[Rfam]
RNA: Small nucleolar RNA snoR2/U65
RNA sequence: GGUCCGAUGCCACGUCGCCGGUAGCCAAGAGCCUUGACCGGCGAUGCUAUGACUGGACCGAAACAAAUUCCAUGUUUCGCUUGCUGAUAGGAAUCUAUGGAUCUGAUUCGCUGUGAUCCACGGAGCCGUUUUCGGCGAUUACAUUC
Numbered sequence: 001g002g003u004c005c006g007a008u009g010c011c012a013c014g015u016c017g018c019c020g021g022u023a024g025c026c027a028a029g030a031g032c033c034u035u036g037a038c039c040g041g042c043g044a045u046g047c048u049a050u051g052a053c054u055g056g057a058c059c060g061a062a063a064c065a066a067a068u069u070c071c072a073u074g075u076u077u078c079g080c081u082u083g084c085u086g087a088u089a090g091g092a093a094u095c096u097a098u099g100g101a102u103c104u105g106a107u108u109c110g111c112u113g114u115g116a117u118c119c120a121c122g123g124a125g126c127c128g129u130u131u132u133c134g135g136c137g138a139u140u141a142c143a144u145u146c
Base pairs, nucleotide, nucleotide: 002058003057004056005055006054008052009050013046014045015044016043017042018041020039021038022037024032025031077138078137079136080135081134090127091126095123096122099119100118101117102116103115